[Rfam]
RNA sequence: AUGCAGCCAAUUAAGCUGACCGUGCUACUUUCCUCAUGUGGGCCAGUGUGCAAUGGCUGCAAACAGCAGCCUUCUUGGUAGUGUAUGUAGCCUGUUGCUUGUAUGGGUUGCUCUAAGGGACCUUGGAGACAGUC
Number, nucleotide and partner (000 for none) at each position: 001a000002u052003g051004c050005a049006g000007c000008c000009a000010a000011u000012u000013a000014a000015g000016c000017u000018g000019a047020c046021c000022g044023u000024g000025c041026u040027a039028c038029u000030u000031u000032c000033c000034u000035c000036a000037u000038g028039u027040g026041g025042g000043c000044c022045a000046g020047u019048g000049u005050g004051c003052a002053a000054u000055g000056g000057c000058u000059g000060c000061a000062a000063a000064c000065a000066g000067c000068a000069g000070c000071c000072u000073u000074c000075u000076u000077g122078g121079u120080a000081g000082u000083g000084u000085a000086u000087g000088u110089a109090g108091c107092c106093u105094g000095u000096u000097g000098c000099u000100u000101g000102u000103a000104u000105g093106g092107g091108u090109u089110g088111c000112u000113c000114u000115a000116a000117g000118g000119g000120a079121c078122c077123u000124u000125g000126g000127a000128g000129a000130c000131a000132g000133u000134c000
RNA: Small nucleolar RNA SNORA70
Organism: Propithecus coquereli